[Rfam]
Nucleotides: 188
Base pairs, nucleotide, nucleotide: 012172013171014170018028019027020026030167031166032165033164034163039087088153089152090151096130133147134146135145
Number, partner (000 for none) and nucleotide at each position: 001000a002000u003000g004000c005000u006000u007000u008000g009000c010000g011000a012172g013171c014170c015000g016000a017000a018028c019027a020026c021000a022000u023000g024000u025000u026020g027019u028018g029000g030167c031166g032165g033164g034163g035000g036000a037000c038000g039087c040000u041000u042000u043000c044000u045000u046000g047000a048000u049000u050000c051000u052000g053000c054000u055000a056000a057000a058000g059000c060000a061000a062000a063000u064000g065000a066000a067000a068000c069000a070000g071000c072000u073000u074000u075000u076000c077000a078000u079000a080000g081000a082000a083000u084000c085000u086000u087039g088153g089152g090151g091000u092000g093000a094000a095000u096130c097000a098000a099000u100000g101000g102000c103000g104000c105000u106000a107000a108000u109000c110000u111000a112000a113000u114000g115000c116000a117000a118000g119000c120000c121000a122000a123000g124000c125000g126000c127000c128000u129000a130096g131000a132000c133147g134146g135145g136000a137000a138000c139000u140000c141000c142000u143000u144000a145135c146134c147133c148000g149000a150000a151090u152089c153088c154000g155000a156000c157000a158000a159000c160000u161000a162000a163034c164033c165032c166031c167030g168000a169000a170014g171013g172012c173000g174000u175000a176000a177000a178000u179000c180000a181000a182000g183000g184000a185000g186000g187000u188000a